RNA sequence: UAAGACAAGUAGAGGCACCCGCUUCUCGCCUGAUUGACGCAUUAUUAUGUAGUUGCCAGGUUAACAAUCUGAUUAAUCAACAGAUAAUGUGUGGGUGCAGUGUGUACCGACACUUUUUUUAUGGA
Numbered sequence: 001u002a003a004g005a006c007a008a009g010u011a012g013a014g015g016c017a018c019c020c021g022c023u024u025c026u027c028g029c030c031u032g033a034u035u036g037a038c039g040c041a042u043u044a045u046u047a048u049g050u051a052g053u054u055g056c057c058a059g060g061u062u063a064a065c066a067a068u069c070u071g072a073u074u075a076a077u078c079a080a081c082a083g084a085u086a087a088u089g090u091g092u093g094g095g096u097g098c099a100g101u102g103u104g105u106a107c108c109g110a111c112a113c114u115u116u117u118u119u120u121a122u123g124g125a
Stems, first nucleotide, its partner, number of pairs: 011026006028061003036054003039050002090112003094108006
Rfam assigns this 125-nucleotide sequence from Paraliobacillus quinghaiensis to the family "Ribosomal protein L20 leader".
The family's RNA type in Rfam is cis-regulatory leader.
Its family is annotated with regulation of gene expression in the Gene Ontology.
Pairs were carried over by alignment from the consensus structure, which was predicted with CMfinder.
A search with the family's covariance model found it, with a score of 64 bits.